Shown here is a 221-nucleotide RNA sequence from Ruminococcus sp. 5_1_39BFAA, a member of the family "Group II catalytic intron D1-D4-6". From the family's description: Group II introns are found in rRNA, tRNA and mRNA of organelles in fungi, plants and protists, and also in mRNA in bacteria. The pairing is the family consensus, mapped onto this sequence.
[Rfam]
Nucleotides: 221
Base pairs, nucleotide, nucleotide: 010038011037012036013035014034018032019031021029022028023189025187026186040087041086044084045083046082047081048079049078050074051073052072053071054070056068058067059066060065108215109213111212112211113210114209115208116207131206132205133204134203135202136201137163138162139161142157143156144155145154168200169199170198171197172196173195177192178191179190
Number, partner (000 for none) and nucleotide at each position: 001000g002000u003000g004000g005000u006000c007000c008000c009000a010038u011037c012036a013035a014034a015000u016000a017000a018032g019031c020000u021029g022028u023189u024000a025187a026186c027000c028022a029021c030000a031019g032018c033000a034014u035013u036012u037011g038010a039000a040087g041086c042000g043000a044084g045083u046082c047081u048079u049078g050074a051073g052072u053071c054070u055000g056068u057000u058067a059066c060065g061000g062000u063000a064000a065060c066059g067058u068056g069000a070054a071053g072052g073051c074050u075000a076000a077000g078049c079048g080000u081047a082046g083045a084044c085000a086041g087040c088000a089000a090000g091000a092000u093000a094000g095000c096000a097000g098000g099000g100000a101000u102000a103000g104000c105000u106000a107000u108215g109213g110000a111212g112211c113210a114209c115208c116207g117000a118000a119000a120000u121000c122000c123000c124000a125000a126000a127000g128000u129000a130000u131206c132205a133204g134203a135202g136201g137163g138162u139161c140000g141000a142157c143156a144155c145154c146000g147000u148000g149000g150000u151000c152000a153000g154145g155144g156143u157142g158000g159000a160000a161139g162138a163137c164000a165000a166000u167000a168200u169199a170198u171197g172196c173195a174000c175000u176000u177192a178191u179190c180000g181000u182000u183000a184000u185000g186026g187025u188000g189023a190179g191178a192177u193000u194000u195173u196172g197171c198170a199169u200168g201136c202135c203134u204133c205132u206131g207116c208115g209114g210113u211112g212111u213109u214000g215108u216000u217000g218000a219000a220000a221000c